Rfam assigns this 274-nucleotide part of an RNA from Methanopyrus kandleri to the family "Archaeal large subunit ribosomal RNA". The organism belongs to Methanopyrus kandleri, within Archaea.
[Rfam]
RNA sequence: GAGUCCGCGGCCGCGGCGAGUCUAAGGGGUUCAAACCCCGAAGGCGUAGGGAAACCGACACGCCCGCAGCCCGGCCGUUAGGCCGGGCCAGGGGCGGGGUCCUAAUAGGGCCCGCAGCCGCGGCCGCGGGACCCGAAACCGGCCGAUCUAGCCCGGGGCAGGGUGAAGCGGCCCUAAAGGGCCGUGGAGGCCCGCUAGGGGUGCUGUAGUGCAAAACGCUCCCGUGACCCCGGGCUAGGGGUGAAAGGCCAAUCGAGGCCGGAGACAGCUGGUU
Numbered sequence: 001g002a003g004u005c006c007g008c009g010g011c012c013g014c015g016g017c018g019a020g021u022c023u024a025a026g027g028g029g030u031u032c033a034a035a036c037c038c039c040g041a042a043g044g045c046g047u048a049g050g051g052a053a054a055c056c057g058a059c060a061c062g063c064c065c066g067c068a069g070c071c072c073g074g075c076c077g078u079u080a081g082g083c084c085g086g087g088c089c090a091g092g093g094g095c096g097g098g099g100u101c102c103u104a105a106u107a108g109g110g111c112c113c114g115c116a117g118c119c120g121c122g123g124c125c126g127c128g129g130g131a132c133c134c135g136a137a138a139c140c141g142g143c144c145g146a147u148c149u150a151g152c153c154c155g156g157g158g159c160a161g162g163g164u165g166a167a168g169c170g171g172c173c174c175u176a177a178a179g180g181g182c183c184g185u186g187g188a189g190g191c192c193c194g195c196u197a198g199g200g201g202u203g204c205u206g207u208a209g210u211g212c213a214a215a216a217c218g219c220u221c222c223c224g225u226g227a228c229c230c231c232g233g234g235c236u237a238g239g240g241g242u243g244a245a246a247g248g249c250c251a252a253u254c255g256a257g258g259c260c261g262g263a264g265a266c267a268g269c270u271g272g273u274u
Stems, first nucleotide, its partner, number of pairs: 005129013020045004026039004049056002062095004069088008098112004132272002135269001139262006148238011159226001161193004168185007198223004203219002206217002240250003